Source information:
tRNA: a 73-nucleotide RNA from Amycolatopsis mediterranei. The family's RNA type in Rfam is transfer RNA. Pairs were carried over by alignment from the consensus structure, which is taken from published work.
RNA sequence: GCCCCCGUGGCUCAGUGGACAGAGCAGCGGCUUCCGAAGCCGCAGGUCGCAGGUUCGACUCCUGCCGGGGGCU
Numbered sequence: 001g002c003c004c005c006c007g008u009g010g011c012u013c014a015g016u017g018g019a020c021a022g023a024g025c026a027g028c029g030g031c032u033u034c035c036g037a038a039g040c041c042g043c044a045g046g047u048c049g050c051a052g053g054u055u056c057g058a059c060u061c062c063u064g065c066c067g068g069g070g071g072c073u
Stems, first nucleotide, its partner, number of pairs: 001072007010025004027043005049065005
Dot-bracket structure: (((((((..((((........)))).(((((.......))))).....(((((.......)))))))))))).
Taxonomically the source falls in Amycolatopsis mediterranei (Bacteria, Bacillati, Actinomycetota, Actinomycetes).